[Rfam]
RNA sequence: AAAUCAUGAUGAGGACAUCUCCUCAAAAGCUCUCUAAAUCACUCUCAUGCUUCGAAUAAGGAUUCUGAUUCAUAUUGUUGAAAGCAACAUAUCUCCGUCAUAAGCUU
Numbered sequence: 001a002a003a004u005c006a007u008g009a010u011g012a013g014g015a016c017a018u019c020u021c022c023u024c025a026a027a028a029g030c031u032c033u034c035u036a037a038a039u040c041a042c043u044c045u046c047a048u049g050c051u052u053c054g055a056a057u058a059a060g061g062a063u064u065c066u067g068a069u070u071c072a073u074a075u076u077g078u079u080g081a082a083a084g085c086a087a088c089a090u091a092u093c094u095c096c097g098u099c100a101u102a103a104g105c106u107u
Base pairs, nucleotide, nucleotide: 001107004104006101057074058073060071
Description:
The family of this 107-nucleotide sequence from Abrus precatorius is "Plant small nucleolar RNA R71". Its family is annotated with RNA processing and nucleolus in the Gene Ontology. The match comes from Rfam's covariance-model search (58 bits). The family's consensus secondary structure was predicted with PFOLD. A reference for the family is Brown et al. (2003), "Plant snoRNAs: functional evolution and new modes of gene expression", Trends Plant Sci.